[Rfam]
RNA sequence: GGGAAUUCUCAGGGCGGGGUGAAAUUCCCCACCGGCGGUAGUCCUCAAAAGGGAGAGCCCGCGAGCGCUUGCAUAGCACACUUCAUCGCCAUGCAAGGUCAGCAGAUCUGGUGCAGUGUAUUGAGACAUACAUGAUUCCAGAGCCGACGGUUAAAGUCCGGAUGGAAGAGGAUUUCA
Numbered sequence: 001g002g003g004a005a006u007u008c009u010c011a012g013g014g015c016g017g018g019g020u021g022a023a024a025u026u027c028c029c030c031a032c033c034g035g036c037g038g039u040a041g042u043c044c045u046c047a048a049a050a051g052g053g054a055g056a057g058c059c060c061g062c063g064a065g066c067g068c069u070u071g072c073a074u075a076g077c078a079c080a081c082u083u084c085a086u087c088g089c090c091a092u093g094c095a096a097g098g099u100c101a102g103c104a105g106a107u108c109u110g111g112u113g114c115a116g117u118g119u120a121u122u123g124a125g126a127c128a129u130a131c132a133u134g135a136u137u138c139c140a141g142a143g144c145c146g147a148c149g150g151u152u153a154a155a156g157u158c159c160g161g162a163u164g165g166a167a168g169a170g171g172a173u174u175u176c177a
Stems, first nucleotide, its partner, number of pairs: 003175008017029003031157002033146002035062004057144002065103002107142005148160003
Shown here is a 177-nucleotide RNA from Photobacterium ganghwense, a member of the family "FMN riboswitch aptamer (RFN element)". Taxonomically the source falls in Photobacterium (Bacteria, Pseudomonadota, Gammaproteobacteria, Vibrionales).